[Rfam]
RNA: Small nucleolar RNA SNORA47
RNA sequence: UGGAGGACUGAGAAGGUUAAGCAGCUUGUGCUGUGCUGUUAUAACUGGUUAUAGCCUCCGAGAGCAACUAACAAACAACACGACUGUGCAGCUCGGUGUGAUGCCACAGAGCUGACAGCUGUGUUUGUUAACACAAC
Numbered sequence: 001u002g003g004a005g006g007a008c009u010g011a012g013a014a015g016g017u018u019a020a021g022c023a024g025c026u027u028g029u030g031c032u033g034u035g036c037u038g039u040u041a042u043a044a045c046u047g048g049u050u051a052u053a054g055c056c057u058c059c060g061a062g063a064g065c066a067a068c069u070a071a072c073a074a075a076c077a078a079c080a081c082g083a084c085u086g087u088g089c090a091g092c093u094c095g096g097u098g099u100g101a102u103g104c105c106a107c108a109g110a111g112c113u114g115a116c117a118g119c120u121g122u123g124u125u126u127g128u129u130a131a132c133a134c135a136a137c
Stems, first nucleotide, its partner, number of pairs: 002059005015046004020040006070129003075125001078122003086116002